[Rfam]
RNA sequence: UAAUGCCUCUAUGAAAAAAAGAAUCUCUGCUGGAACAGGACGUCCUAUAUAGAACCGCUUAAGACGGUGACAAAACUUAACAAACGUUAAAUA
Numbered sequence: 001u002a003a004u005g006c007c008u009c010u011a012u013g014a015a016a017a018a019a020a021g022a023a024u025c026u027c028u029g030c031u032g033g034a035a036c037a038g039g040a041c042g043u044c045c046u047a048u049a050u051a052g053a054a055c056c057g058c059u060u061a062a063g064a065c066g067g068u069g070a071c072a073a074a075a076c077u078u079a080a081c082a083a084a085c086g087u088u089a090a091a092u093a
Base pairs, nucleotide, nucleotide: 026039027038028037029036054068055067056066057065059063
Source information: The family of this 93-nucleotide RNA from Lentilactobacillus hilgardii is "RNA anti-toxin A". The family's consensus secondary structure was predicted with RNAalifold. Rfam links the family to the GO terms mRNA binding and negative regulation of translation. A reference for the family is Fozo et al. (2010), "Abundance of type I toxin-antitoxin systems in bacteria: searches for new candidates and discovery of novel families", Nucleic Acids Res. Rfam 15.1 lists 190 matches to the family in 120 species. It is annotated as an antitoxin RNA. It scores 61 bits against the family's covariance model.